[Rfam]
Nucleotides: 537
Base pairs, nucleotide, nucleotide: 005500006499007498013497015368017366018365022361023360024359259355260354261353262352263350264349267346271343272342273341274340277321278320281317282316283315284314285313286312287311288310292303293302294301329336330335373414374413375412376411377410378409383407387403388402389401390400425496426495427494429488430487432472433471434470437467438466439465440464441463442462446459447458448457476483477482502529503528504527511522512521513520514519
Number, partner (000 for none) and nucleotide at each position: 001000g002000u003000u004000g005500u006499g007498g008000u009000u010000a011000a012000a013497a014000a015368g016000c017366u018365c019000g020000u021000a022361g023360u024359u025000g026000g027000a028000u029000c030000u031000c032000a033000g034000u035000u036000c037000g038000a039000g040000u041000c042000a043000g044000a045000c046000g047000g048000u049000c050000c051000a052000c053000u054000u055000g056000c057000c058000a059000g060000u061000g062000g063000c064000u065000a066000c067000u068000g069000u070000u071000u072000g073000a074000c075000u076000g077000a078000a079000c080000a081000c082000u083000u084000u085000a086000c087000c088000g089000a090000g091000u092000u093000g094000u095000c096000c097000u098000a099000u100000g101000g102000u103000g104000u105000u106000c107000u108000u109000c110000a111000c112000c113000g114000a115000g116000c117000g118000u119000c120000a121000u122000a123000g124000g125000c126000g127000a128000u129000c130000g131000g132000u133000a134000c135000g136000u137000u138000u139000a140000c141000u142000u143000u144000g145000a146000a147000a148000a149000a150000a151000u152000u153000a154000g155000a156000g157000u158000g159000c160000u161000c162000a163000a164000a165000g166000c167000a168000g169000g170000c171000g172000u173000a174000a175000c176000g177000c178000c179000c180000g181000a182000a183000u184000a185000a186000u187000g188000u189000u190000g191000c192000a193000u194000g195000g196000a197000a198000u199000a200000a201000u202000g203000g204000a205000a206000u207000a208000g209000g210000a211000c212000c213000u214000c215000g216000g217000u218000u219000c220000u221000a222000u223000u224000u225000u226000g227000u228000u229000g230000g231000u232000c233000u234000u235000c236000g237000g238000a239000a240000u241000c242000u243000g244000a245000g246000g247000u248000a249000a250000u251000g252000a253000u254000c255000a256000a257000u258000a259355g260354g261353g262352a263350c264349a265000g266000a267346c268000g269000g270000g271343g272342c273341g274340a275000u276000u277321c278320g279000u280000a281317u282316u283315g284314c285313g286312g287311c288310g289000c290000u291000a292303g293302a294301g295000g296000u297000g298000a299000a300000a301294u302293u303292c304000u305000u306000g307000g308000a309000c310288c311287g312286u313285c314284g315283c316282a317281a318000g319000a320278c321277g322000a323000a324000c325000u326000a327000a328000a329336g330335c331000g332000a333000a334000a335330g336329c337000a338000u339000u340274u341273c342272g343271c344000a345000a346267g347000a348000a349264u350263g351000u352262u353261u354260u355259c356000a357000u358000u359024a360023a361022u362000c363000a364000a365018g366017a367000a368015c369000g370000a371000a372000a373414g374413u375412u376411a377410g378409a379000g380000g381000u382000u383407c384000g385000a386000a387403g388402g389401c390400g391000a392000u393000c394000a395000g396000a397000u398000a399000c400390c401389g402388c403387c404000c405000u406000a407383g408000u409378u410377c411376u412375a413374a414373c415000c416000a417000u418000a419000a420000a421000c422000g423000a424000u425496g426495c427494c428000a429488a430487c431000c432472a433471g434470u435000a436000a437467u438466u439465a440464a441463g442462c443000u444000g445000u446459g447458u448457u449000c450000c451000u452000u453000a454000a455000a456000u457448g458447a459446c460000a461000c462442g463441c464440u465439u466438a467437g468000g469000g470434a471433c472432u473000u474000c475000c476483g477482g478000g479000a480000a481000a482477c483476c484000a485000a486000a487430g488429u489000c490000u491000u492000u493000c494427g495426g496425u497013u498007c499006c500005a501000g502529g503528g504527g505000a506000a507000g508000u509000a510000u511522g512521g513520u514519u515000g516000c517000a518000a519514a520513g521512c522511u523000g524000a525000a526000a527504c528503u529502u530000a531000a532000a533000g534000a535000a536000a537000u
Rfam assigns this 537-nucleotide part of an RNA from Oppiella nova to the family "Eukaryotic small subunit ribosomal RNA". Gene Ontology terms of the family: ribosome and structural constituent of ribosome. NCBI's taxonomy places the organism under Eukaryota, Sarcoptiformes, Oribatida, Oppioidea, Oppiella. The family's consensus secondary structure is taken from published work.